[Rfam]
RNA sequence: AGAGGUCACAAAUUCAAGGCCAUAGCAGAAGUGCUCACAACAUGGCCCUAUCAUAUUCCAAUGAAUCUGCAAAGUCCGCU
Numbered sequence: 001a002g003a004g005g006u007c008a009c010a011a012a013u014u015c016a017a018g019g020c021c022a023u024a025g026c027a028g029a030a031g032u033g034c035u036c037a038c039a040a041c042a043u044g045g046c047c048c049u050a051u052c053a054u055a056u057u058c059c060a061a062u063g064a065a066u067c068u069g070c071a072a073a074g075u076c077c078g079c080u
Base pairs, nucleotide, nucleotide: 018047019046020045021044024080025079026078028076029075031043032042033041052069053068055066056065057064058063
RNA: Mammalian CPEB3 ribozyme